[Rfam]
RNA sequence: GUCGGGAGGGCGACUAAUACAACACCCGCAAGGGGAAUAAGUCCGCGGUUUCUUACUGCCGUUUUGAGCCUCCCGACACCAUAUU
Dot-bracket structure: (((((((((..(((((........(((....)))...)).))).(((((........)))))......)))))))))........
This 85-nucleotide sequence from Photorhabdus laumondii belongs to the Rfam family "sRNA-Xcc1". A reference for the family is Chen et al. (2011), "sRNA-Xcc1, an integron-encoded transposon- and plasmid-transferred trans-acting sRNA, is under the positive control of the key virulence regulators HrpG and HrpX of Xanthomonas campestris pathovar campestris", RNA Biol. By type it is a small RNA. Pairs were carried over by alignment from the consensus structure, which was predicted with RNAalifold. The organism belongs to Photorhabdus laumondii subsp. laumondii, within Bacteria. Rfam 15.1 lists 421 matches to the family in 299 species. Rfam's curators put it in the seed alignment.